[Rfam]
RNA: drum RNA
RNA sequence: CAGUGUUGAUAUAAAGCCUUGUUUCAAGGUGCAGUGCUUUAUAGAUCUGAACGUUUAGCACAACUUGAAUAGGCGUGCAGUAAUGCUAAAAGAACCCGUUUUAA
Numbered sequence: 001c002a003g004u005g006u007u008g009a010u011a012u013a014a015a016g017c018c019u020u021g022u023u024u025c026a027a028g029g030u031g032c033a034g035u036g037c038u039u040u041a042u043a044g045a046u047c048u049g050a051a052c053g054u055u056u057a058g059c060a061c062a063a064c065u066u067g068a069a070u071a072g073g074c075g076u077g078c079a080g081u082a083a084u085g086c087u088a089a090a091a092g093a094a095c096c097c098g099u100u101u102u103a104a
Base pairs, nucleotide, nucleotide: 001049002048003047011042012041013040014039015038016037017036019034020033021032022031024068025067026066027065051099052098053097072087073086074085075084